Overview: The record is a 132-nucleotide RNA sequence from Sphingomonas sp. Leaf42, which matches "Y RNA-like" in Rfam. The source organism's lineage runs through Bacteria, Pseudomonadati, Alphaproteobacteria, Sphingomonadaceae and Sphingomonas. The match comes from Rfam's covariance-model search (73 bits). About the family: In Deinococcus radiodurans Rsr is tethered via Y RNA to the exoribonuclease PNPase and channels single-stranded RNA into the PNPase cavity. Rfam 15.1 lists 124 matches to the family in 99 species.
RNA sequence: ACGGCGAAUGCCGGCCGGACUACAUGGAUUGUGAUUCCCCAGGAUGCGGGUUCGAGUCCCGCCCCGGCUUUCAGCCGGGUAGCUCAAUCGGUUGGAGCAGGAGAGGUCCGGUCAAAUCCUUGUCGCCGUGGG
Numbered sequence: 001a002c003g004g005c006g007a008a009u010g011c012c013g014g015c016c017g018g019a020c021u022a023c024a025u026g027g028a029u030u031g032u033g034a035u036u037c038c039c040c041a042g043g044a045u046g047c048g049g050g051u052u053c054g055a056g057u058c059c060c061g062c063c064c065c066g067g068c069u070u071u072c073a074g075c076c077g078g079g080u081a082g083c084u085c086a087a088u089c090g091g092u093u094g095g096a097g098c099a100g101g102a103g104a105g106g107u108c109c110g111g112u113c114a115a116a117u118c119c120u121u122g123u124c125g126c127c128g129u130g131g132g
Stems, first nucleotide, its partner, number of pairs: 002128006013113007039101002046062005063079006082098004